[Rfam]
RNA sequence: GCCCGUCUAGCUCAGUCGGUAGAGCGCAAGACUCUUAAUCUUGUGGUCGUGGGUUCGAAGCCCCACGGUGGGCG
Numbered sequence: 001g002c003c004c005g006u007c008u009a010g011c012u013c014a015g016u017c018g019g020u021a022g023a024g025c026g027c028a029a030g031a032c033u034c035u036u037a038a039u040c041u042u043g044u045g046g047u048c049g050u051g052g053g054u055u056c057g058a059a060g061c062c063c064c065a066c067g068g069u070g071g072g073c074g
Base pairs, nucleotide, nucleotide: 001073002072003071004070005069006068007067010025011024012023013022027043028042029041030040031039049066050065051064052063053062